[Rfam]
RNA sequence: GCCGUGCUGAUCCGAACUGUCACCGGAUGGUGCGCGUGCCUGGCAAUCGCCGGGAUAAGGCAGCGGGGCGCAA
Numbered sequence: 001g002c003c004g005u006g007c008u009g010a011u012c013c014g015a016a017c018u019g020u021c022a023c024c025g026g027a028u029g030g031u032g033c034g035c036g037u038g039c040c041u042g043g044c045a046a047u048c049g050c051c052g053g054g055a056u057a058a059g060g061c062a063g064c065g066g067g068g069c070g071c072a073a
Stems, first nucleotide, its partner, number of pairs: 001069003005065003009061001011060002018036003021032004039054004
The family of this 73-nucleotide RNA is "DUF3800-IX RNA". Rfam classes the family as a small RNA. Pairs were carried over by alignment from the consensus structure, which is taken from published work. Actinobacteria, Firmicutes (1 example), Nitrospirae, Proteobacteria, Verrucomicrobia (1 example).